[Rfam]
RNA: mir-8364 microRNA precursor family
RNA sequence: UCUUCAUUCCGCGUGCUCUCUCGUCACUCUGACCGAUGAGAUAGUACGAGAAAUGAAGAGA
Numbered sequence: 001u002c003u004u005c006a007u008u009c010c011g012c013g014u015g016c017u018c019u020c021u022c023g024u025c026a027c028u029c030u031g032a033c034c035g036a037u038g039a040g041a042u043a044g045u046a047c048g049a050g051a052a053a054u055g056a057a058g059a060g061a
Base pairs, nucleotide, nucleotide: 001059002058003057004056005055006054007053010050012048013047014046015045016044017043019041020040021039022038